[Rfam]
RNA: Small Cajal body-specific RNA 7
RNA sequence: UGGAAAUGAUGAAAUAGAGAUAAUUGGGUGUUGAAUGUUGUGUGAUUGGAAACCUUUUUUUUUAUGUGUAAGUUAAGUAAUUUAAGCUUAAUAUUUUAUAGAUAAUAAGAGAGUGUGUGUGCGUUUGUGUGUGUGUGCUUGUGGAGGCUAUUGAAAGGGGGCACUGACGGGUGAUGCUGAUAUUGGAGUGCAUCUGAGGCUGUUGUUAAAAUACAUGGGUUGUUGAUUACAACAUUGCCAAUGAUUAUAACCCAAGAACAGCUCACCUAAGUAGCCUAGCACCCUAAAAUCUCUAACAGGUUCAUUAAACAUGGCCCUGUGAUCUGAUCCAA
Numbered sequence: 001u002g003g004a005a006a007u008g009a010u011g012a013a014a015u016a017g018a019g020a021u022a023a024u025u026g027g028g029u030g031u032u033g034a035a036u037g038u039u040g041u042g043u044g045a046u047u048g049g050a051a052a053c054c055u056u057u058u059u060u061u062u063u064a065u066g067u068g069u070a071a072g073u074u075a076a077g078u079a080a081u082u083u084a085a086g087c088u089u090a091a092u093a094u095u096u097u098a099u100a101g102a103u104a105a106u107a108a109g110a111g112a113g114u115g116u117g118u119g120u121g122c123g124u125u126u127g128u129g130u131g132u133g134u135g136u137g138c139u140u141g142u143g144g145a146g147g148c149u150a151u152u153g154a155a156a157g158g159g160g161g162c163a164c165u166g167a168c169g170g171g172u173g174a175u176g177c178u179g180a181u182a183u184u185g186g187a188g189u190g191c192a193u194c195u196g197a198g199g200c201u202g203u204u205g206u207u208a209a210a211a212u213a214c215a216u217g218g219g220u221u222g223u224u225g226a227u228u229a230c231a232a233c234a235u236u237g238c239c240a241a242u243g244a245u246u247a248u249a250a251c252c253c254a255a256g257a258a259c260a261g262c263u264c265a266c267c268u269a270a271g272u273a274g275c276c277u278a279g280c281a282c283c284c285u286a287a288a289a290u291c292u293c294u295a296a297c298a299g300g301u302u303c304a305u306u307a308a309a310c311a312u313g314g315c316c317c318u319g320u321g322a323u324c325u326g327a328u329c330c331a332a
Base pairs, nucleotide, nucleotide: 001331002330003329004328201234202233203232204231205230206229208227210224211223212222213221214219